RNA sequence: CUAUUCCCUACAUGGUUAAGUCGCUCUGGAUAAGAGCGUCUGCUAAAUGACUUAAA
Numbered sequence: 001c002u003a004u005u006c007c008c009u010a011c012a013u014g015g016u017u018a019a020g021u022c023g024c025u026c027u028g029g030a031u032a033a034g035a036g037c038g039u040c041u042g043c044u045a046a047a048u049g050a051c052u053u054a055a056a
Stems, first nucleotide, its partner, number of pairs: 013045001014043001017042002022038006